Annotation:
Shown here is an 81-nucleotide RNA from Tetranychus urticae, a member of the family "mir-5729 microRNA precursor family". Pairs were carried over by alignment from the consensus structure, which was predicted with RNAalifold. The match comes from Rfam's covariance-model search (66 bits).
[Rfam]
Nucleotides: 081
Base pairs, nucleotide, nucleotide: 003079004078005077006076007075008074009073010072013070015069016068017067020064021063026058027057030054031053032052033051034049035048036047037046038045039044
Number, partner (000 for none) and nucleotide at each position: 001000u002000a003079u004078c005077c006076c007075u008074g009073a010072c011000c012000a013070g014000u015069g016068g017067u018000a019000a020064g021063a022000a023000a024000a025000g026058c027057a028000a029000a030054g031053g032052c033051c034049a035048a036047g037046g038045g039044u040000g041000a042000u043000g044039a045038c046037c047036c048035u049034u050000a051033g052032g053031u054030c055000u056000c057027u058026g059000a060000a061000g062000a063021u064020c065000g066000a067017a068016c069015c070013c071000u072010g073009u074008c075007a076006g077005g078004g079003g080000g081000a
The source organism's lineage runs through Eukaryota, Opisthokonta, Panarthropoda, Prostigmata and Tetranychus.